[Rfam]
RNA sequence: GAAGAUGAUGAGAAAACUUUGGAAUCUCGUUCGUCUGAGCUCCUGCUGAGAAAUGGAAAUCUGACUUCU
Numbered sequence: 001g002a003a004g005a006u007g008a009u010g011a012g013a014a015a016a017c018u019u020u021g022g023a024a025u026c027u028c029g030u031u032c033g034u035c036u037g038a039g040c041u042c043c044u045g046c047u048g049a050g051a052a053a054u055g056g057a058a059a060u061c062u063g064a065c066u067u068c069u
Stems, first nucleotide, its partner, number of pairs: 025051005032045002
A member of the RNA family "Small nucleolar RNA SNORD30" from Neogobius melanostomus, 69 nucleotides long. Rfam 15.1 lists 367 matches to the family in 268 species. The family is grouped with related families in Rfam's "SNORD30 clan". On this family, see Tycowski et al., Nature 1996: "A mammalian gene with introns instead of exons generating stable RNA products". The match comes from Rfam's covariance-model search (47 bits).